A member of the RNA family "mir-1 microRNA precursor family" from Xenopus laevis, 78 nucleotides long. For this family Rfam cites "An extensive class of small RNAs in Caenorhabditis elegans" (Lee and Ambros, Science, 2001). Its family is annotated with RISC complex and miRNA-mediated post-transcriptional gene silencing in the Gene Ontology. This family represents the microRNA (miRNA) mir-1 family. miRNAs are transcribed as ~70nt precursors (modelled here) and subsequently processed by the Dicer enzyme to give a ~22nt product. In this case the mature sequence comes from the 3' arm of the precursor.
RNA sequence: GUUUGGGAGACAUACUUCUUUAUAUGUCCAUAUGAAAGUGCCAAUGCUAUGGAAUGUAAAGAAGUAUGUAUCUCCGAU
Dot-bracket structure: ......((.((((((((((((((((..(((((...............))))).)))))))))))))))).))......

Lineage of the source: Eukaryota > Euteleostomi > Sarcopterygii > Pipidae > Xenopus.